Rfam assigns this 114-nucleotide RNA from Branchiostoma floridae to the family "Potassium channel RNA editing signal". Rfam's curators write: This family represents a group of sequences related to the human potassium channel Kv1.1 hairpin element which directs the efficient modification of an adenosine to inosine by an adenosine deaminase acting on RNA (ADAR). The ADAR modification causes an isoleucine/valine recoding event which lies in the ion-conducting pore of the potassium channel. It is thought that this editing event targets the process of fast inactivation and allows a more rapid recovery from inactivation at negative potentials.
RNA sequence: GUUGGCUACGGAGACCAAUACCCCGUUUCUCUCCCGGGCAAAAUCGUCGGCUCCAUGUGCGUGGUCACCGGCCUUCUUGUCAUCGCGUUGCCCGUACCGAUCAUCGUAGAAAAU
Numbered sequence: 001g002u003u004g005g006c007u008a009c010g011g012a013g014a015c016c017a018a019u020a021c022c023c024c025g026u027u028u029c030u031c032u033c034c035c036g037g038g039c040a041a042a043a044u045c046g047u048c049g050g051c052u053c054c055a056u057g058u059g060c061g062u063g064g065u066c067a068c069c070g071g072c073c074u075u076c077u078u079g080u081c082a083u084c085g086c087g088u089u090g091c092c093c094g095u096a097c098c099g100a101u102c103a104u105c106g107u108a109g110a111a112a113a114u
Stems, first nucleotide, its partner, number of pairs: 001114002007108005013102002016099001019096003037077002040074001050062002
Description: By type it is a cis-regulatory element.